[Rfam]
Nucleotides: 130
Base pairs, nucleotide, nucleotide: 004127005126007125008124
Number, partner (000 for none) and nucleotide at each position: 001000g002000c003000a004127g005126c006000g007125u008124g009000a010000a011000c012000a013000a014000u015000g016000a017000g018000g019000u020000c021000a022000a023000g024000g025000u026000g027000a028000g029000c030000g031000u032000g033000a034000c035000g036000g037000u038000g039000c040000g041000c042000c043000g044000g045000u046000c047000g048000a049000c050000g051000g052000c053000g054000c055000u056000g057000c058000u059000g060000g061000g062000c063000g064000g065000c066000g067000c068000c069000g070000g071000c072000g073000c074000g075000g076000u077000g078000c079000a080000a081000g082000g083000a084000g085000g086000c087000g088000c089000a090000c091000c092000u093000c094000a095000g096000g097000u098000g099000u100000u101000c102000g103000a104000c105000g106000g107000g108000g109000u110000g111000a112000u113000g114000u115000g116000g117000u118000u119000c120000c121000u122000g123000c124008c125007g126005g127004c128000g129000g130000c